[Rfam]
RNA: T-box leader
RNA sequence: AAAAAUUCAAUGAAGAGGACAGUACUUUUCAGAAGUCUUAAAGCGAGCAAGGGGAGAGUGAAAGCCUUGUAGGAAUAUGAAAAGCCAUUGUGGUAACACAAAGGUAUUAUAAGUUUUCUGUUUAAAACUUAUAAAGGAAGAGAACCUCGGAGAAGCUACCUGAAAGAGUAACACUUUGCUUGUAUAGGGUAAGUCGCAGCAAUGCGUUAUAGUUUUGAGUGGACUUAGUUAAGUCAACAAGAGUGGUACCGCGGAUACACCCGUCUCUAUU
Numbered sequence: 001a002a003a004a005a006u007u008c009a010a011u012g013a014a015g016a017g018g019a020c021a022g023u024a025c026u027u028u029u030c031a032g033a034a035g036u037c038u039u040a041a042a043g044c045g046a047g048c049a050a051g052g053g054g055a056g057a058g059u060g061a062a063a064g065c066c067u068u069g070u071a072g073g074a075a076u077a078u079g080a081a082a083a084g085c086c087a088u089u090g091u092g093g094u095a096a097c098a099c100a101a102a103g104g105u106a107u108u109a110u111a112a113g114u115u116u117u118c119u120g121u122u123u124a125a126a127a128c129u130u131a132u133a134a135a136g137g138a139a140g141a142g143a144a145c146c147u148c149g150g151a152g153a154a155g156c157u158a159c160c161u162g163a164a165a166g167a168g169u170a171a172c173a174c175u176u177u178g179c180u181u182g183u184a185u186a187g188g189g190u191a192a193g194u195c196g197c198a199g200c201a202a203u204g205c206g207u208u209a210u211a212g213u214u215u216u217g218a219g220u221g222g223a224c225u226u227a228g229u230u231a232a233g234u235c236a237a238c239a240a241g242a243g244u245g246g247u248a249c250c251g252c253g254g255a256u257a258c259a260c261c262c263g264u265c266u267c268u269a270u271u
Stems, first nucleotide, its partner, number of pairs: 007153002015148004025136004036124001047121003051117004156193002158190004195206003222235005240268004251264004